[Rfam]
RNA sequence: UUCGGCAAUAAAUUGCCGGGCUAUUUUCAGUCGUCCCUCUGGGACU
Number, nucleotide and partner (000 for none) at each position: 001u020002u019003c018004g017005g016006c015007a014008a013009u000010a000011a000012a000013u008014u007015g006016c005017c004018g003019g002020g001021c000022u000023a000024u000025u000026u000027u000028c000029a000030g000031u000032c000033g045034u044035c043036c042037c041038u000039c000040u000041g037042g036043g035044a034045c033046u000